The record is a 131-nucleotide sequence from Lactiplantibacillus plantarum, which matches "FMN riboswitch aptamer (RFN element)" in Rfam. The source organism's lineage runs through Bacteria, Bacillota, Bacilli, Lactobacillaceae and Lactiplantibacillus.

RNA sequence: CGAUUUCUUCGGGGCAGGGUGCAAUUCCCGACCGACGGUAACAACGUAAGUUGAAGUCCGUGACCCGCGUGAGCGGUGGACCCAGUGCAAGUCUGGGACCGACAGUAUAGUCUGGAUGGGAGAAGAAAAUU
Dot-bracket structure: ...(((((((......(((.......))).[[((((((.................[[))))...((........))....(((((.......)))))]])).(((....]]))).......)))))))...